[Rfam]
RNA sequence: ACAGCCCUGUCCGAGGCCACCGCAGAAGUGCUCACAGCACGGCCGUCAGAUUGCAGCAAAUCUGCAAAUUCUGCU
Number, nucleotide and partner (000 for none) at each position: 001a000002c000003a000004g000005c000006c000007c000008u000009g000010u000011c000012c000013g000014a000015g000016g043017c042018c041019a000020c000021c000022g074023c073024a072025g071026a070027a069028g040029u039030g038031c000032u000033c000034a000035c000036a000037g000038c030039a029040c028041g018042g017043c016044c000045g000046u000047c064048a063049g062050a061051u060052u059053g000054c000055a000056g000057c000058a000059a052060a051061u050062c049063u048064g047065c000066a000067a000068a000069u027070u026071c025072u024073g023074c022075u000
A member of the RNA family "Mammalian CPEB3 ribozyme" from Crocodylus porosus, 75 nucleotides long. The mammalian CPEB3 ribozyme is a self cleaving RNA located in the second intron of the CPEB3 gene which belongs to a family of genes regulating messenger RNA polyadenylation. Lineage of the source: Eukaryota > Opisthokonta > Chordata > Longirostres > Crocodylus. On this family, see Salehi-Ashtiani et al., Science 2006: "A genomewide search for ribozymes reveals an HDV-like sequence in the human CPEB3 gene".